RNA sequence: CUUCCAUCUAUCAAUGGAUAAGGCUUUGAUAUUAGUAUAUAUGAGUUCGUGAAACUUUUGAAAGUAAAGGAGCAAUACUAAAUUUCUUGUUAUAUCAAGAGGUUUUGUGUUGCUCCUUU
Numbered sequence: 001c002u003u004c005c006a007u008c009u010a011u012c013a014a015u016g017g018a019u020a021a022g023g024c025u026u027u028g029a030u031a032u033u034a035g036u037a038u039a040u041a042u043g044a045g046u047u048c049g050u051g052a053a054a055c056u057u058u059u060g061a062a063a064g065u066a067a068a069g070g071a072g073c074a075a076u077a078c079u080a081a082a083u084u085u086c087u088u089g090u091u092a093u094a095u096c097a098a099g100a101g102g103u104u105u106u107g108u109g110u111u112g113c114u115c116c117u118u119u
Base pairs, nucleotide, nucleotide: 003018004017005016006015007014066119067118068117069116070115071114072113073112074111075110076109077108078107080105081104082103084101085100086099087098088097

Plastid-psbA-1 3UTR RNA: a 119-nucleotide RNA sequence from Fragaria x ananassa. Rfam describes the family as follows. Plastid psbA-1 is a non-coding RNA (ncRNA) present in plastids. It was identified in inverted repeat sequences in the 3 prime untranslate region (3UTR) of photosystem II quinone-binding protein (psbA). The family's consensus secondary structure was predicted with LocARNA. By type it is a cis-regulatory element.